[Rfam]
RNA sequence: GGCUAGCGAUGAAGUGGAAGGUUGCUCGUAAUUUUGAGGGAAUUUUCAUGGAGCAGUCCGCAAAAUCGGACGUAA
Numbered sequence: 001g002g003c004u005a006g007c008g009a010u011g012a013a014g015u016g017g018a019a020g021g022u023u024g025c026u027c028g029u030a031a032u033u034u035u036g037a038g039g040g041a042a043u044u045u046u047c048a049u050g051g052a053g054c055a056g057u058c059c060g061c062a063a064a065a066u067c068g069g070a071c072g073u074a075a
Stems, first nucleotide, its partner, number of pairs: 014049003018046004025038004057070004
RNA: S10-Clostridia ribosomal protein leader